[Rfam]
RNA sequence: GUGUGUUUGCGUUUGGAUGAUGUUCAGCACUAGAGACAGGUGUAUUCCUGUGUGGAUGGUGUUCAGCACCAAGGACAGGUACAUUUGGAG
Numbered sequence: 001g002u003g004u005g006u007u008u009g010c011g012u013u014u015g016g017a018u019g020a021u022g023u024u025c026a027g028c029a030c031u032a033g034a035g036a037c038a039g040g041u042g043u044a045u046u047c048c049u050g051u052g053u054g055g056a057u058g059g060u061g062u063u064c065a066g067c068a069c070c071a072a073g074g075a076c077a078g079g080u081a082c083a084u085u086u087g088g089a090g
Stems, first nucleotide, its partner, number of pairs: 004081006018071002021068004026063007034053001036051005
The family of this 90-nucleotide RNA sequence from Branchiostoma belcheri is "mir-2060 microRNA precursor family". A search with the family's covariance model found it, with a score of 64 bits. The base pairs follow the family's consensus structure, which was predicted with RNAalifold.